[Rfam]
RNA sequence: CUCUUAUUCCGAGUUGGUGGAGGGACAGCCCCUAUGAAACCCAGCAACCAUCACAUUUGUGAAAAGGUGCUAACCUGGUGCAAGGAUCACUCCUUGAACAAUAAGAG
Numbered sequence: 001c002u003c004u005u006a007u008u009c010c011g012a013g014u015u016g017g018u019g020g021a022g023g024g025a026c027a028g029c030c031c032c033u034a035u036g037a038a039a040c041c042c043a044g045c046a047a048c049c050a051u052c053a054c055a056u057u058u059g060u061g062a063a064a065a066g067g068u069g070c071u072a073a074c075c076u077g078g079u080g081c082a083a084g085g086a087u088c089a090c091u092c093c094u095u096g097a098a099c100a101a102u103a104a105g106a107g
Stems, first nucleotide, its partner, number of pairs: 001107008013042001016041003022032003026080002043071004048067002051062003081096006
This 107-nucleotide RNA sequence from Virgibacillus necropolis belongs to the Rfam family "SAM riboswitch aptamer (S box leader)". The base pairs follow the family's consensus structure, which is taken from published work.